[Rfam]
RNA sequence: CCGGGCCCAGGUUCUGUGAUACACUCCGACUCGGGCUCUGGAGCAGUCAGUGCAUGACAGAACUUGGGCCCGGU
Number, nucleotide and partner (000 for none) at each position: 001c000002c000003g000004g070005g069006c068007c067008c066009a065010g064011g063012u062013u061014c060015u059016g058017u000018g000019a000020u000021a000022c052023a051024c050025u049026c000027c000028g048029a047030c046031u045032c000033g000034g000035g000036c000037u000038c000039u000040g000041g000042a000043g000044c000045a031046g030047u029048c028049a025050g024051u023052g022053c000054a000055u000056g000057a000058c016059a015060g014061a013062a012063c011064u010065u009066g008067g007068g006069c005070c004071c000072g000073g000074u000
A member of the RNA family "mir-148/mir-152 microRNA precursor family" from Rattus norvegicus, 74 nucleotides long.
Its family is annotated with RISC complex and miRNA-mediated post-transcriptional gene silencing in the Gene Ontology.
It is one of the family's seed sequences.